mir-9256 microRNA precursor family: a 67-nucleotide RNA from Cnephaeus nilssonii. Pairs were carried over by alignment from the consensus structure, which was predicted with RNAalifold. It scores 80 bits against the family's covariance model. Taxonomically the source falls in Cnephaeus (Eukaryota, Metazoa, Amniota, Chiroptera).

[Rfam]
RNA sequence: AUAUACACUGAGUGUCCAGAUUAUUAUGCAUUCAAAGAUCAUAAUAAUCUGGACACUCAGUAUAUAU
Numbered sequence: 001a002u003a004u005a006c007a008c009u010g011a012g013u014g015u016c017c018a019g020a021u022u023a024u025u026a027u028g029c030a031u032u033c034a035a036a037g038a039u040c041a042u043a044a045u046a047a048u049c050u051g052g053a054c055a056c057u058c059a060g061u062a063u064a065u066a067u
Stems, first nucleotide, its partner, number of pairs: 004064002007061011019049010